[Rfam]
RNA sequence: AUAGCCUGAUUGGUGGCUAUACAGUUUAAGUAGGCCCCGUUAAUCUUCUGUCCCGCCAAGAAUAGAAAGAUUAUCGGGGUUUUUGCUU
Numbered sequence: 001a002u003a004g005c006c007u008g009a010u011u012g013g014u015g016g017c018u019a020u021a022c023a024g025u026u027u028a029a030g031u032a033g034g035c036c037c038c039g040u041u042a043a044u045c046u047u048c049u050g051u052c053c054c055g056c057c058a059a060g061a062a063u064a065g066a067a068a069g070a071u072u073a074u075c076g077g078g079g080u081u082u083u084u085g086c087u088u
Base pairs, nucleotide, nucleotide: 001020002019003018004017005016028088029087030086031085032082033081034080035079036078037077038076039075041073042072043071044070045069046068047067

The record is an 88-nucleotide RNA sequence from Salmonella enterica, which matches "CopA-like RNA" in Rfam.
The literature on the family includes a 1983 paper in EMBO J by Light and Molin, "Post-transcriptional control of expression of the repA gene of plasmid R1 mediated by a small RNA molecule".
It is annotated as an antisense RNA.
The organism belongs to Salmonella enterica subsp. enterica serovar Dublin, within Bacteria.
Rfam describes the family as follows. In several groups of bacterial plasmids, antisense RNAs regulate copy number through inhibition of replication initiator protein synthesis. These RNAs are characterised by a long hairpin structure interrupted by several unpaired residues or bulged loops. In plasmid R1, the inhibitory complex between the antisense RNA (CopA) and its target mRNA (CopT) is characterised by a four-way junction structure and a side-by-side helical alignment.
Gene Ontology term of the family: mRNA binding.